[Rfam]
RNA sequence: UACAAUACCAAUCGUUUGCUUCGUAUAACCCCAAUGAUAUGGUUUGGGGGUCUCUACCAGCUCCCGCAAAGUGCUGAUUACGAAGAGUCAAGAUCACAUU
Numbered sequence: 001u002a003c004a005a006u007a008c009c010a011a012u013c014g015u016u017u018g019c020u021u022c023g024u025a026u027a028a029c030c031c032c033a034a035u036g037a038u039a040u041g042g043u044u045u046g047g048g049g050g051u052c053u054c055u056a057c058c059a060g061c062u063c064c065c066g067c068a069a070a071g072u073g074c075u076g077a078u079u080a081c082g083a084a085g086a087g088u089c090a091a092g093a094u095c096a097c098a099u100u
Base pairs, nucleotide, nucleotide: 019085020084021083022082023081024080025079029049030048031047032046033045034044058076059075060074061073063071

Shown here is a 100-nucleotide RNA from Vibrio mediterranei, a member of the family "Purine riboswitch aptamer". Pairs were carried over by alignment from the consensus structure, which is taken from published work. Its family is annotated with purine nucleobase biosynthetic process in the Gene Ontology.